[Rfam]
RNA sequence: AAAAAACUUCAGGGUCGGGUGAAAUUCCCAAUCGGCGGUAUACCCCGCAAGCCAUAAGGCAGAACCGUGUGAAACUCCGGUGGCGACAGUAUAGUCUGGAUGAAAGAAGUUAAGU
Numbered sequence: 001a002a003a004a005a006a007c008u009u010c011a012g013g014g015u016c017g018g019g020u021g022a023a024a025u026u027c028c029c030a031a032u033c034g035g036c037g038g039u040a041u042a043c044c045c046c047g048c049a050a051g052c053c054a055u056a057a058g059g060c061a062g063a064a065c066c067g068u069g070u071g072a073a074a075c076u077c078c079g080g081u082g083g084c085g086a087c088a089g090u091a092u093a094g095u096c097u098g099g100a101u102g103a104a105a106g107a108a109g110u111u112a113a114g115u
Base pairs, nucleotide, nucleotide: 005111006110007109008108009107010106017029018028019027031095032094033085034084035048036047037046038045043083044082051060052059053058064081065080066079067078069077087098088097089096
Source information: The record is a 115-nucleotide RNA from [Clostridium] innocuum, which matches "FMN riboswitch aptamer (RFN element)" in Rfam. The family's consensus secondary structure is taken from published work.